[Rfam]
Notes
A member of the RNA family "Guanidine-I riboswitch aptamer" from Lysinibacillus halotolerans, 99 nucleotides long. The base pairs follow the family's consensus structure. The match comes from Rfam's covariance-model search (90 bits).

RNA sequence: UUAAAUGUUUUCUAGGGUUCCGCAUGAUUUCAUGGUCUGGUCCGAGAGAAAACUCACAGCACUUUUGCUGUGUCACGGAAGGAUAAAAGCCUGGGAGAU
Numbered sequence: 001u002u003a004a005a006u007g008u009u010u011u012c013u014a015g016g017g018u019u020c021c022g023c024a025u026g027a028u029u030u031c032a033u034g035g036u037c038u039g040g041u042c043c044g045a046g047a048g049a050a051a052a053c054u055c056a057c058a059g060c061a062c063u064u065u066u067g068c069u070g071u072g073u074c075a076c077g078g079a080a081g082g083a084u085a086a087a088a089g090c091c092u093g094g095g096a097g098a099u
Stems, first nucleotide, its partner, number of pairs: 007053006015043002020040002022037001023034004055072007074094001076097001080092003